[Rfam]
RNA sequence: AUGUAGUGUGACAUGCCCGUUUGGUAAUUACUCUGAUGUAUGUUUAUUUAUUAUUUAAUUGUUUUGGGUAACGGGGUGUUACAGUUAG
Numbered sequence: 001a002u003g004u005a006g007u008g009u010g011a012c013a014u015g016c017c018c019g020u021u022u023g024g025u026a027a028u029u030a031c032u033c034u035g036a037u038g039u040a041u042g043u044u045u046a047u048u049u050a051u052u053a054u055u056u057a058a059u060u061g062u063u064u065u066g067g068g069u070a071a072c073g074g075g076g077u078g079u080u081a082c083a084g085u086u087a088g
Stems, first nucleotide, its partner, number of pairs: 004087003007083008016075006

Rfam assigns this 88-nucleotide RNA from Medicago truncatula to the family "MIR2617 microRNA precursor family". Pairs were carried over by alignment from the consensus structure, which was predicted with RNAalifold. Rfam links the family to the GO terms RISC complex and miRNA-mediated post-transcriptional gene silencing.